RNA sequence: UCUGGCUGAGGUAGUAGUUUGUGCUGUUGGUUGGGUUGUGACACUGCCCACUAUGGAGUUGACUGCGCAAGCUACUGCCUUGCUGGC
Numbered sequence: 001u002c003u004g005g006c007u008g009a010g011g012u013a014g015u016a017g018u019u020u021g022u023g024c025u026g027u028u029g030g031u032u033g034g035g036u037u038g039u040g041a042c043a044c045u046g047c048c049c050a051c052u053a054u055g056g057a058g059u060u061g062a063c064u065g066c067g068c069a070a071g072c073u074a075c076u077g078c079c080u081u082g083c084u085g086g087c
Stems, first nucleotide, its partner, number of pairs: 002086005008081017026063002033049004051058002
The family of this 87-nucleotide RNA sequence from Megalops atlanticus is "let-7 microRNA precursor family". Taxonomically the source falls in Megalops (Eukaryota, Teleostomi, Actinopterygii, Elopocephalai). The literature on the family includes a 2001 paper in Cell by Ambros, "microRNAs: tiny regulators with great potential". Rfam 15.1 lists 8,694 matches to the family in 797 species. The family is grouped with related families in Rfam's "let-7 microRNA precursor clan". Rfam links the family to the GO terms miRNA-mediated post-transcriptional gene silencing and RISC complex. From the family's description: This family represents the microRNAs (miRNA) let-7 and mir-98. let-7 was identified from a study of developmental timing in C. elegans, and was later shown to be part of a much larger class of non-coding RNAs termed miRNAs.